[Rfam]
RNA: Fusobacteriales-1 RNA
Organism: Lachnoclostridium sp. An76
RNA sequence: AAGAACGUUUUACGGUGUACGGCAUGGAAACACUGUUUAUGCAAACACGUUUCGCAAUGUACGGCAAAGAAACAUUGCUUACACAAAUACGCUUCACAAUGUGCGGCAAAGAAACAUUGU
Numbered sequence: 001a002a003g004a005a006c007g008u009u010u011u012a013c014g015g016u017g018u019a020c021g022g023c024a025u026g027g028a029a030a031c032a033c034u035g036u037u038u039a040u041g042c043a044a045a046c047a048c049g050u051u052u053c054g055c056a057a058u059g060u061a062c063g064g065c066a067a068a069g070a071a072a073c074a075u076u077g078c079u080u081a082c083a084c085a086a087a088u089a090c091g092c093u094u095c096a097c098a099a100u101g102u103g104c105g106g107c108a109a110a111g112a113a114a115c116a117u118u119g120u
Stems, first nucleotide, its partner, number of pairs: 006021003012036007048063003054078007090105003096120007